[Rfam]
RNA: Lysine riboswitch aptamer
Organism: Marinisporobacter balticus
RNA sequence: UUGUGUUUUAGAGGUUGCGAUAGACAAUGAGUAUUUUAAACUAGGCAAAGGGAGCUCUUAUGUUUAAAUGAAAGGUGUCGUCGCCGAAGCGUAUAUCCAACCCUUUGGAUAUACUGCUGGUAUGAUGUUAAAUAAGCAUCUUACUGUCAUUGGUAGAUUACCCAAGCUAUCAAUGGUGCGCUACUUCACAC
Numbered sequence: 001u002u003g004u005g006u007u008u009u010a011g012a013g014g015u016u017g018c019g020a021u022a023g024a025c026a027a028u029g030a031g032u033a034u035u036u037u038a039a040a041c042u043a044g045g046c047a048a049a050g051g052g053a054g055c056u057c058u059u060a061u062g063u064u065u066a067a068a069u070g071a072a073a074g075g076u077g078u079c080g081u082c083g084c085c086g087a088a089g090c091g092u093a094u095a096u097c098c099a100a101c102c103c104u105u106u107g108g109a110u111a112u113a114c115u116g117c118u119g120g121u122a123u124g125a126u127g128u129u130a131a132a133u134a135a136g137c138a139u140c141u142u143a144c145u146g147u148c149a150u151u152g153g154u155a156g157a158u159u160a161c162c163c164a165a166g167c168u169a170u171c172a173a174u175g176g177u178g179c180g181c182u183a184c185u186u187c188a189c190a191c
Stems, first nucleotide, its partner, number of pairs: 009183003017084005024078003035068007088118004092113008119145004124140006147176010